Rfam assigns this 111-nucleotide sequence from Pipistrellus kuhlii to the family "Small nucleolar RNA SNORD67". The literature on the family includes a 2001 paper in EMBO J by Huttenhofer et al., "RNomics: an experimental approach that identifies 201 candidates for novel, small, non-messenger RNAs in mouse". By type it is a C/D-box small nucleolar RNA. The match comes from Rfam's covariance-model search (37 bits). Rfam describes the family as follows. snoRNA HBII-166 belongs to the C/D family of snoRNAs. Taxonomically the source falls in Pipistrellus (Eukaryota, Amniota, Mammalia, Laurasiatheria). Rfam links the family to the GO terms RNA processing and nucleolus.
RNA sequence: AGUAUUAGAAAGGAGUUAGCUUACUUUUGGUAGUGUUUUUGUAGAACAAAAAUUGCCAAUAAGUGUCAUCUUGAUGCCAAACACAAGUGAACAGUUGCUGUGUGAAUUGUC
Numbered sequence: 001a002g003u004a005u006u007a008g009a010a011a012g013g014a015g016u017u018a019g020c021u022u023a024c025u026u027u028u029g030g031u032a033g034u035g036u037u038u039u040u041g042u043a044g045a046a047c048a049a050a051a052a053u054u055g056c057c058a059a060u061a062a063g064u065g066u067c068a069u070c071u072u073g074a075u076g077c078c079a080a081a082c083a084c085a086a087g088u089g090a091a092c093a094g095u096u097g098c099u100g101u102g103u104g105a106a107u108u109g110u111c
Stems, first nucleotide, its partner, number of pairs: 004110001007107001023064004027059004032054003038050005